This 87-nucleotide RNA sequence from Natronincola peptidivorans belongs to the Rfam family "c-di-GMP-I-GGC riboswitch aptamer". Pairs were carried over by alignment from the consensus structure, which is taken from published work. Lineage of the source: Bacteria > Bacillota > Clostridia > Peptostreptococcales > Natronincola. It scores 66 bits against the family's covariance model.

RNA sequence: ACCGAUAAAGGCAAACCAUUCGAAAGGAUGGGACGCAAAGCCAAAGGGCCUAAUGCUGUAAAAGCAAGGGCAGCCGAGCUACCGAAG
Numbered sequence: 001a002c003c004g005a006u007a008a009a010g011g012c013a014a015a016c017c018a019u020u021c022g023a024a025a026g027g028a029u030g031g032g033a034c035g036c037a038a039a040g041c042c043a044a045a046g047g048g049c050c051u052a053a054u055g056c057u058g059u060a061a062a063a064g065c066a067a068g069g070g071c072a073g074c075c076g077a078g079c080u081a082c083c084g085a086a087g
Base pairs, nucleotide, nucleotide: 003084004083011036012035016031017030018029019028020027021026034073039080040079041078046075047074048071049070050069